This 180-nucleotide RNA sequence from Bacillus licheniformis belongs to the Rfam family "Lysine riboswitch aptamer". Gene Ontology term of the family: lysine biosynthetic process. NCBI's taxonomy places the organism under Bacteria, Bacillati, Bacilli, Caryophanales, Bacillus licheniformis. Riboswitches are metabolite binding domains within certain messenger RNAs that serve as precision sensors for their corresponding targets. Rfam's curators put it in the seed alignment. The base pairs follow the family's consensus structure, which is taken from published work.
[Rfam]
RNA sequence: GGUGAAGAUAGAGGUGCGAACUUCAAGAGUAGGCUUGAUGAGGAAGAUGGAUUCCGAUGAAGAAAGCCGAAAGGGGAGCGUCGCCGAAGCGGGGAAAAAUCCACUCGUUUUUCCUGCUGGCUUUACAUUGAAUAAAUGUGAGGCUGUCAAGAAAUCAUUUCUUGGAGAGCUAUCUCGUUG
Numbered sequence: 001g002g003u004g005a006a007g008a009u010a011g012a013g014g015u016g017c018g019a020a021c022u023u024c025a026a027g028a029g030u031a032g033g034c035u036u037g038a039u040g041a042g043g044a045a046g047a048u049g050g051a052u053u054c055c056g057a058u059g060a061a062g063a064a065a066g067c068c069g070a071a072a073g074g075g076g077a078g079c080g081u082c083g084c085c086g087a088a089g090c091g092g093g094g095a096a097a098a099a100u101c102c103a104c105u106c107g108u109u110u111u112u113c114c115u116g117c118u119g120g121c122u123u124u125a126c127a128u129u130g131a132a133u134a135a136a137u138g139u140g141a142g143g144c145u146g147u148c149a150a151g152a153a154a155u156c157a158u159u160u161c162u163u164g165g166a167g168a169g170c171u172a173u174c175u176c177g178u179u180g
Stems, first nucleotide, its partner, number of pairs: 006175006016084004021078004032068005039061001088118011119145011147165007